[Rfam]
RNA: Group II catalytic intron D1-D4-2
Organism: Moschus moschiferus
RNA sequence: GGUGGUAGGUCCACCGCAUACGGCGUACAGGCGCAGUUUGCAAACCACUUUGUGCGGCUGUGAGGGAAACUGAAUGGUCGUGAACGACAAUUGGAAGGCUGAUGUGAAUCAGUCGAGG
Numbered sequence: 001g002g003u004g005g006u007a008g009g010u011c012c013a014c015c016g017c018a019u020a021c022g023g024c025g026u027a028c029a030g031g032c033g034c035a036g037u038u039u040g041c042a043a044a045c046c047a048c049u050u051u052g053u054g055c056g057g058c059u060g061u062g063a064g065g066g067a068a069a070c071u072g073a074a075u076g077g078u079c080g081u082g083a084a085c086g087a088c089a090a091u092u093g094g095a096a097g098g099c100u101g102a103u104g105u106g107a108a109u110c111a112g113u114c115g116a117g118g
Base pairs, nucleotide, nucleotide: 001015002014003013004012005011016041017040018039020037021036023034024033025032026031045118046117050090051089052088053087054081055080057078058077059076061074063071064070097114098113099112100111101110102109